The family of this 120-nucleotide RNA sequence from Xiphophorus maculatus is "Small nucleolar RNA SNORA26".
A search with the family's covariance model found it, with a score of 50 bits.
By type it is an H/ACA-box small nucleolar RNA.
The family has 76 seed sequences and 1,943 matches in Rfam 15.1.
Lineage of the source: Eukaryota > Metazoa > Teleostomi > Acanthomorphata > Xiphophorus.
From the family's description: The snoRNA HBI-6 belong to the H/ACA family of snoRNAs, guiding the pseudouridylation of position U4522 if the 28S rRNA. HBI-6 is the human orthologue of mouse MBI-6 snoRNA.
On this family, see Huttenhofer et al., EMBO J 2001: "RNomics: an experimental approach that identifies 201 candidates for novel, small, non-messenger RNAs in mouse".
Rfam links the family to the GO terms RNA processing and nucleolus.
RNA sequence: UUGCCCACCUUGGACCCCCAGUCGUCCUUGGUGCCGAACACAGGGGGGCAGAGAGAGUCUCUCAUAAACCUGUAGUGAAGGCGCCGAUCCUCACUGCGGAUCCUGUCGGGAGAAACAACC
Numbered sequence: 001u002u003g004c005c006c007a008c009c010u011u012g013g014a015c016c017c018c019c020a021g022u023c024g025u026c027c028u029u030g031g032u033g034c035c036g037a038a039c040a041c042a043g044g045g046g047g048g049c050a051g052a053g054a055g056a057g058u059c060u061c062u063c064a065u066a067a068a069c070c071u072g073u074a075g076u077g078a079a080g081g082c083g084c085c086g087a088u089c090c091u092c093a094c095u096g097c098g099g100a101u102c103c104u105g106u107c108g109g110g111a112g113a114a115a116c117a118a119c120c
Stems, first nucleotide, its partner, number of pairs: 002050005008044003019031001059112005070099007078091001080089001083088001